Rfam assigns this 302-nucleotide RNA sequence from Macrophomina phaseolina to the family "Group I catalytic intron". For this family Rfam cites "Self-splicing of group I introns" (Cech, Annu Rev Biochem, 1990).

RNA sequence: GAAAAACGGCAAUUACUAUGGUCGAUAUAGGACUGAGAAUCCUAUUAUAGGCCAAUUUGUAGGAGUGAACCUUCUGCACUAAACCAUCAAAUUGACGGGGAAGCCCUAAAGCAAUUUCAACCAAACAAAUGUGGUAGCACAUUUGUGGCACAGGUAAUGACUCGUGGUAUGGUAACAUAGAAAUUGAUGACGAAAGGAAAUGGGUAAUCCGCAGCCAAGCACCUUCGUGGUGUGCAGUUCAUCGACUAAAUGUUGGUUGGCGCAAGCUUAAGAUAUAGUCAAGCCCCACCCGAAAGGGUGCA
Numbered sequence: 001g002a003a004a005a006a007c008g009g010c011a012a013u014u015a016c017u018a019u020g021g022u023c024g025a026u027a028u029a030g031g032a033c034u035g036a037g038a039a040u041c042c043u044a045u046u047a048u049a050g051g052c053c054a055a056u057u058u059g060u061a062g063g064a065g066u067g068a069a070c071c072u073u074c075u076g077c078a079c080u081a082a083a084c085c086a087u088c089a090a091a092u093u094g095a096c097g098g099g100g101a102a103g104c105c106c107u108a109a110a111g112c113a114a115u116u117u118c119a120a121c122c123a124a125a126c127a128a129a130u131g132u133g134g135u136a137g138c139a140c141a142u143u144u145g146u147g148g149c150a151c152a153g154g155u156a157a158u159g160a161c162u163c164g165u166g167g168u169a170u171g172g173u174a175a176c177a178u179a180g181a182a183a184u185u186g187a188u189g190a191c192g193a194a195a196g197g198a199a200a201u202g203g204g205u206a207a208u209c210c211g212c213a214g215c216c217a218a219g220c221a222c223c224u225u226c227g228u229g230g231u232g233u234g235c236a237g238u239u240c241a242u243c244g245a246c247u248a249a250a251u252g253u254u255g256g257u258u259g260g261c262g263c264a265a266g267c268u269u270a271a272g273a274u275a276u277a278g279u280c281a282a283g284c285c286c287c288a289c290c291c292g293a294a295a296g297g298g299u300g301c302a
Stems, first nucleotide, its partner, number of pairs: 005026001007024004012019002030042003082258005088252002093213002096211004104204003214238002219233004242281001244280005260267002287300005
Dot-bracket structure: ....(.((((.((....)).)))).)...(((.......))).......................................(((((.((...((.((((....(((...............................................................................................)))...))))))((...((((.......))))...))...[.[[[[[..)).))))).((....))........]]]]]].....(((((....)))))..